[Rfam]
Shown here is an 80-nucleotide RNA sequence from Alligator sinensis, a member of the family "Mammalian CPEB3 ribozyme". Its family is annotated with RNA nuclease activity in the Gene Ontology. The organism belongs to Alligator, within Eukaryota.

RNA sequence: UUAAGCUGGUAGGGGUCAGACUGGAAGCGUUCCUGUCGUGACCCAUCAGGUAAUACCUGGUAAUACCUGUGAAUUCUGCU
Numbered sequence: 001u002u003a004a005g006c007u008g009g010u011a012g013g014g015g016u017c018a019g020a021c022u023g024g025a026a027g028c029g030u031u032c033c034u035g036u037c038g039u040g041a042c043c044c045a046u047c048a049g050g051u052a053a054u055a056c057c058u059g060g061u062a063a064u065a066c067c068u069g070u071g072a073a074u075u076c077u078g079c080u
Stems, first nucleotide, its partner, number of pairs: 013044005020080001022078005027039003047069006